Rfam assigns this 89-nucleotide sequence from Oryzias latipes to the family "mir-7 microRNA precursor family". The literature on the family includes a 2001 paper in Science by Lagos-Quintana et al., "Identification of novel genes coding for small expressed RNAs". The family has 132 seed sequences and 2,589 matches in Rfam 15.1. From the family's description: This family represents the microRNA (miRNA) precursor mir-7.

[Rfam]
RNA sequence: UGUUGGUAGUGCUGAAUGGAAGACUAGUGAUUUUGUUGUGACGUUGAUGGAAGAACAACAAGUCCCAGUCUACCUCUCAGCACAAGCAG
Numbered sequence: 001u002g003u004u005g006g007u008a009g010u011g012c013u014g015a016a017u018g019g020a021a022g023a024c025u026a027g028u029g030a031u032u033u034u035g036u037u038g039u040g041a042c043g044u045u046g047a048u049g050g051a052a053g054a055a056c057a058a059c060a061a062g063u064c065c066c067a068g069u070c071u072a073c074c075u076c077u078c079a080g081c082a083c084a085a086g087c088a089g
Stems, first nucleotide, its partner, number of pairs: 004086001009083002012080004018074002021071005027066001029064005035059005